[Rfam]
This 173-nucleotide RNA sequence from Cupriavidus basilensis belongs to the Rfam family "Burkholderia RNA 14". About the family: Co-purified with Hfq, expression confirmed by Northern blot. Putative functional homologue of PA-SraF. Overlaps coding sequence. A search with the family's covariance model found it, with a score of 109 bits. A reference for the family is Ramos et al. (2013), "Experimental identification of small non-coding regulatory RNAs in the opportunistic human pathogen Burkholderia cenocepacia J2315", Genomics. The organism belongs to Cupriavidus, within Bacteria.

RNA sequence: GUCGGCGUCGUCACCGUCAAGCCAGCCACCGUGCCCGUCACCUCCGAGCUGCCGGGCCGCACCAGCGCCUUCCUGGUCGCGCAGGUGCGCGCGCGGGUCGACGGCAUCGUGCUGCGCCGCGAGUUCACCGAGGGCGAUGAGGUCAAGCUGGGCCAGCGCCUCUACAAGAUCGA
Numbered sequence: 001g002u003c004g005g006c007g008u009c010g011u012c013a014c015c016g017u018c019a020a021g022c023c024a025g026c027c028a029c030c031g032u033g034c035c036c037g038u039c040a041c042c043u044c045c046g047a048g049c050u051g052c053c054g055g056g057c058c059g060c061a062c063c064a065g066c067g068c069c070u071u072c073c074u075g076g077u078c079g080c081g082c083a084g085g086u087g088c089g090c091g092c093g094c095g096g097g098u099c100g101a102c103g104g105c106a107u108c109g110u111g112c113u114g115c116g117c118c119g120c121g122a123g124u125u126c127a128c129c130g131a132g133g134g135c136g137a138u139g140a141g142g143u144c145a146a147g148c149u150g151g152g153c154c155a156g157c158g159c160c161u162c163u164a165c166a167a168g169a170u171c172g173a
Stems, first nucleotide, its partner, number of pairs: 003054005008047003016038001018037001021034002023031001056149001058147001059143002063139001066136003072133001074131001078093005094121002097118001099116002102114005157172002160168002